[Rfam]
Nucleotides: 107
Stems, first nucleotide, its partner, number of pairs: 004036005013030006042070002045067001047065007075100001077098009
Number, partner (000 for none) and nucleotide at each position: 001000u002000a003000a004036u005035c006034c007033u008032u009000u010000a011000a012000c013030c014029c015028u016027g017026u018025c019000c020000c021000g022000u023000g024000a025018g026017g027016c028015a029014g030013g031000c032008a033007a034006g035005g036004a037000g038000a039000c040000c041000g042070g043069a044000a045067a046000a047065c048064g049063u050062a051061c052060a053059g054000g055000c056000u057000a058000a059053c060052u061051g062050u063049a064048u065047g066000c067045u068000a069043u070042u071000u072000g073000u074000u075100g076000u077098a078097u079096c080095u081094c082093c083092u084091u085090g086000g087000a088000a089000a090085c091084a092083a093082g094081g095080a096079g097078a098077u099000u100075u101000u102000u103000u104000u105000a106000g107000a